[Rfam]
RNA: Plastid-psbM 3UTR RNA
RNA sequence: GAUCGGAUAGUAUGGUGGAAAGAAAUUUCUGAAUCUUUCUACCAUACUAUCUAUUAAACUAUUAAAUCAAUGUUUUUGUACUGUAUAAAGAUACAGACUUAA
Numbered sequence: 001g002a003u004c005g006g007a008u009a010g011u012a013u014g015g016u017g018g019a020a021a022g023a024a025a026u027u028u029c030u031g032a033a034u035c036u037u038u039c040u041a042c043c044a045u046a047c048u049a050u051c052u053a054u055u056a057a058a059c060u061a062u063u064a065a066a067u068c069a070a071u072g073u074u075u076u077u078g079u080a081c082u083g084u085a086u087a088a089a090g091a092u093a094c095a096g097a098c099u100u101a102a
Stems, first nucleotide, its partner, number of pairs: 006051017023028001